This 100-nucleotide RNA sequence from Photobacterium halotolerans belongs to the Rfam family "c-di-GMP-I riboswitch aptamer". A search with the family's covariance model found it, with a score of 80 bits.
[Rfam]
RNA sequence: UCACGAACAAGGCAAACCAUUUGAAAGAAUGGGACGCAAAGCUUCCGGCCUAAAAGUAAUUACUAAAUAAGUUUUUACUCAUGGUAGCGGGGUUGCCGAU
Numbered sequence: 001u002c003a004c005g006a007a008c009a010a011g012g013c014a015a016a017c018c019a020u021u022u023g024a025a026a027g028a029a030u031g032g033g034a035c036g037c038a039a040a041g042c043u044u045c046c047g048g049c050c051u052a053a054a055a056g057u058a059a060u061u062a063c064u065a066a067a068u069a070a071g072u073u074u075u076u077a078c079u080c081a082u083g084g085u086a087g088c089g090g091g092g093u094u095g096c097c098g099a100u
Stems, first nucleotide, its partner, number of pairs: 012037002017032006040094004045090003048085003055079004
The source organism's lineage runs through Bacteria, Pseudomonadati, Pseudomonadota, Gammaproteobacteria and Photobacterium.